[Rfam]
Nucleotides: 088
Stems, first nucleotide, its partner, number of pairs: 001088005008081001011026006028044005047063005066080004
Number, partner (000 for none) and nucleotide at each position: 001088g002087g003086a004085a005084g006000c007000a008081g009000a010000u011026g012025g013024g014023g015022u016021c017000u018000g019000g020000u021016g022015g023014c024013u025012c026011c027000c028044g029043c030042g031041g032040u033000c034000u035000u036000c037000a038000a039000a040032a041031c042030c043029g044028u045000a046000g047063g048062u049061u050060g051059c052000a053000u054000a055000a056000u057000u058000c059051g060050c061049a062048a063047u064000g065000g066080c067079a068078g069077g070000u071000u072000c073000g074000a075000u076000u077069c078068c079067u080066g081008c082000c083000u084005c085004u086003u087002c088001c